[Rfam]
RNA sequence: UCCUGUCUCGCGAAAAGUAGCCCUUGCGGCUGCCUGCCCACCCUACGAGGGAAUGGGAUAGCGAGGCGGGUUAUU
Numbered sequence: 001u002c003c004u005g006u007c008u009c010g011c012g013a014a015a016a017g018u019a020g021c022c023c024u025u026g027c028g029g030c031u032g033c034c035u036g037c038c039c040a041c042c043c044u045a046c047g048a049g050g051g052a053a054u055g056g057g058a059u060a061g062c063g064a065g066g067c068g069g070g071u072u073a074u075u
Stems, first nucleotide, its partner, number of pairs: 002070005008064004017033006037057004
The family of this 75-nucleotide RNA is "DUF3800-IX RNA". By type it is a small RNA. Actinobacteria, Firmicutes (1 example), Nitrospirae, Proteobacteria, Verrucomicrobia (1 example).